[Rfam]
RNA: Bacterial RNase P class A
Organism: Piscinibacter sp. HJYY11
RNA sequence: GAAGCGGGCCAGACCGCCGCUGGUGCGAUCUCGGAAACGAGGCACUGGAGGAAGGUCCGGACUGCACAGGGCGGCGUAGCAGCUAACGGCUGUCCACCGUGAGGUGAGGAUCAGAGCAACAGAGACGAGCCGAUUCAGUUCGGGUGAAACGGGCAAUCUCUACGCGCAGCAACACCAAAUAGGCCAGCGUUGAUGUGGCUCCGCGGAGCUGGCGGGUAGGUGGCAUCGAGCCAUGCAGCGAUGCAUGGCCCAGAGGAAUGGCGGUCACGCUCGGCGCUUCUUCGGAAGUGACGGGUGCACAGAAUCCGGCCUAUCGGCCCGCUUCACAC
Dot-bracket structure: ((((((((((((((((((.(((((((...............)))))))....[[[.[[[[[((((...[[[[.((((((((((.....)))))(((((....)))).)((...((((............((((......)))).........))..)))))))))))))...((((......((((((.....((((]]]]))))..)))))).....)))).......((((((((....))))))))..........)))))))......................................]]]]]]]].).))))))))))....
Numbered sequence: 001g002a003a004g005c006g007g008g009c010c011a012g013a014c015c016g017c018c019g020c021u022g023g024u025g026c027g028a029u030c031u032c033g034g035a036a037a038c039g040a041g042g043c044a045c046u047g048g049a050g051g052a053a054g055g056u057c058c059g060g061a062c063u064g065c066a067c068a069g070g071g072c073g074g075c076g077u078a079g080c081a082g083c084u085a086a087c088g089g090c091u092g093u094c095c096a097c098c099g100u101g102a103g104g105u106g107a108g109g110a111u112c113a114g115a116g117c118a119a120c121a122g123a124g125a126c127g128a129g130c131c132g133a134u135u136c137a138g139u140u141c142g143g144g145u146g147a148a149a150c151g152g153g154c155a156a157u158c159u160c161u162a163c164g165c166g167c168a169g170c171a172a173c174a175c176c177a178a179a180u181a182g183g184c185c186a187g188c189g190u191u192g193a194u195g196u197g198g199c200u201c202c203g204c205g206g207a208g209c210u211g212g213c214g215g216g217u218a219g220g221u222g223g224c225a226u227c228g229a230g231c232c233a234u235g236c237a238g239c240g241a242u243g244c245a246u247g248g249c250c251c252a253g254a255g256g257a258a259u260g261g262c263g264g265u266c267a268c269g270c271u272c273g274g275c276g277c278u279u280c281u282u283c284g285g286a287a288g289u290g291a292c293g294g295g296u297g298c299a300c301a302g303a304a305u306c307c308g309g310c311c312u313a314u315c316g317g318c319c320c321g322c323u324u325c326a327c328a329c
Stems, first nucleotide, its partner, number of pairs: 001325010011314001012266007020048007053312003057309005062169004069201004074165005079093005094108001095106004109160002114158002116154002130143004173222004183213006194205004230249008